[Rfam]
RNA sequence: UUUCCCUGCGUCCUCAUUGUGCAUGCUGUGUGUGUUUCUUAUGGGUCCACACAGCGCCUGCAAUGUGGAGGCCGAGAUG
Numbered sequence: 001u002u003u004c005c006c007u008g009c010g011u012c013c014u015c016a017u018u019g020u021g022c023a024u025g026c027u028g029u030g031u032g033u034g035u036u037u038c039u040u041a042u043g044g045g046u047c048c049a050c051a052c053a054g055c056g057c058c059u060g061c062a063a064u065g066u067g068g069a070g071g072c073c074g075a076g077a078u079g
Base pairs, nucleotide, nucleotide: 012068013067015065016064017063018062019061020060021059024056026054027053028052029051030050031049